Notes:
A member of the RNA family "Small nucleolar RNA Z162" from Digitaria exilis, 88 nucleotides long. The literature on the family includes a 2003 paper in Nucleic Acids Res by Chen et al., "The high diversity of snoRNAs in plants: identification and comparative study of 120 snoRNA genes from Oryza sativa". Rfam 15.1 lists 146 matches to the family in 75 species. The family's RNA type in Rfam is C/D-box small nucleolar RNA. A search with the family's covariance model found it, with a score of 101 bits. Taxonomically the source falls in Digitaria (Eukaryota, Streptophyta, Embryophyta, Panicodae).
[Rfam]
RNA sequence: UGUGGCACAAUGAGGAGUCAAUUUUCCUAAUGUAUCUCUGAGGCCUGAAGGCCAAUGACCCUUGUGUCCUUUUCAUUCUGAGUGCCCU
Numbered sequence: 001u002g003u004g005g006c007a008c009a010a011u012g013a014g015g016a017g018u019c020a021a022u023u024u025u026c027c028u029a030a031u032g033u034a035u036c037u038c039u040g041a042g043g044c045c046u047g048a049a050g051g052c053c054a055a056u057g058a059c060c061c062u063u064g065u066g067u068c069c070u071u072u073u074c075a076u077u078c079u080g081a082g083u084g085c086c087c088u
Base pairs, nucleotide, nucleotide: 004086005085006084007083008082010076011075012074013073014072043052044051045050